[Rfam]
RNA: SAM-I/IV (S-adenosyl methionine) riboswitch aptamer
RNA sequence: CCUCAGCAUUCAGAGUUGGACGUUUCCAUGCCAACCUGCCGCGAUGUGCGUGGUAAGGUGGAUAAUCGCAAAAGUGAUUGAUGUGGCUCGCAAGAGCAACAAUGGAAAUGCCC
Number, nucleotide and partner (000 for none) at each position: 001c000002c000003u000004c000005a000006g084007c083008a082009u081010u080011c000012a000013g000014a000015g029016u000017u028018g027019g026020a025021c000022g000023u000024u000025u020026c019027c018028a017029u015030g000031c061032c060033a000034a000035c058036c057037u056038g054039c053040c052041g000042c000043g000044a000045u000046g109047u108048g000049c000050g000051u000052g040053g039054u038055a000056a037057g036058g035059u000060g032061g031062a000063u000064a000065a000066u000067c000068g000069c000070a000071a000072a000073a000074g000075u000076g000077a000078u000079u000080g010081a009082u008083g007084u006085g000086g097087c096088u095089c094090g000091c000092a000093a000094g089095a088096g087097c086098a000099a000100c000101a000102a000103u000104g000105g000106a000107a000108a047109u046110g000111c000112c000113c000